6S-Flavo RNA: a 114-nucleotide RNA from Psychroflexus torquis.
[Rfam]
RNA sequence: ACUCAACAUUUACUAUUUAAAAAGGGUGAGUUUCAGUUGCUAAAGCAAGCCGCCACUUCGGUGCAGCGGAUCCUUGAUCAGCUGGGUAUCCCUAAACCUGUUUACACGGAGUUU
Numbered sequence: 001a002c003u004c005a006a007c008a009u010u011u012a013c014u015a016u017u018u019a020a021a022a023a024g025g026g027u028g029a030g031u032u033u034c035a036g037u038u039g040c041u042a043a044a045g046c047a048a049g050c051c052g053c054c055a056c057u058u059c060g061g062u063g064c065a066g067c068g069g070a071u072c073c074u075u076g077a078u079c080a081g082c083u084g085g086g087u088a089u090c091c092c093u094a095a096a097c098c099u100g101u102u103u104a105c106a107c108g109g110a111g112u113u114u
Stems, first nucleotide, its partner, number of pairs: 023093004034084005043075003050069004

The family's consensus secondary structure is taken from published work.